The record is a 74-nucleotide RNA from Phytoamicus setariae, which matches "Makes More Granules Regulator RNA (mmgR)" in Rfam. The match comes from Rfam's covariance-model search (55 bits). It is annotated as a small RNA. SuhB later renamed mmgR (makes more granules regulator) was a putative non-coding RNA found multiple times in the Agrobacterium tumefaciens genome and related alpha-proteobacteria. Other non-coding RNAs uncovered in the same analysis include: speF, ybhL, metA, and serC.Several studies inSinorhizobium meliloti showed that suhB element is indeed a non-coding RNA:firstly it was detected on Northern blot and called Sm8RNA, secondly in an RNAseq study referred to as SmelC689.The mutant phenotype's (strain lacking the small RNA) cytoplasm contains higher content of polyhydroxybutyrate (PBH)storage granules than wild type strain. The sRNA is required to limit the PBH intracellular accumulation when the nitrogen-fixing Sinorhizobium meliloti is under condition of surplus carbon in relation to nitrogen.
RNA sequence: UGUAAAUGCCCUCCUUGGGUGUUUCCUCCCUAAAUUUGGCUGCGCUCCCAUGCGCGGCCUCUUUUUUAGGAAGU
Numbered sequence: 001u002g003u004a005a006a007u008g009c010c011c012u013c014c015u016u017g018g019g020u021g022u023u024u025c026c027u028c029c030c031u032a033a034a035u036u037u038g039g040c041u042g043c044g045c046u047c048c049c050a051u052g053c054g055c056g057g058c059c060u061c062u063u064u065u066u067u068a069g070g071a072a073g074u
Base pairs, nucleotide, nucleotide: 008020009019010018011017038059039058040057041056042055043054044053045052